RNA: tRNA
RNA sequence: GCCGUGGUGGCCGAGCGGUUAAGGCGUCAGCUUUACGGGCUGAUGAGAUCGGAAGAUCUUUCGCGGGUUCGAAUCCCGUCCGCGGCG
Numbered sequence: 001g002c003c004g005u006g007g008u009g010g011c012c013g014a015g016c017g018g019u020u021a022a023g024g025c026g027u028c029a030g031c032u033u034u035a036c037g038g039g040c041u042g043a044u045g046a047g048a049u050c051g052g053a054a055g056a057u058c059u060u061u062c063g064c065g066g067g068u069u070c071g072a073a074u075c076c077c078g079u080c081c082g083c084g085g086c087g
Base pairs, nucleotide, nucleotide: 001086002085003084004083005082006081007080010025011024012023027043028042029041030040031039063079064078065077066076067075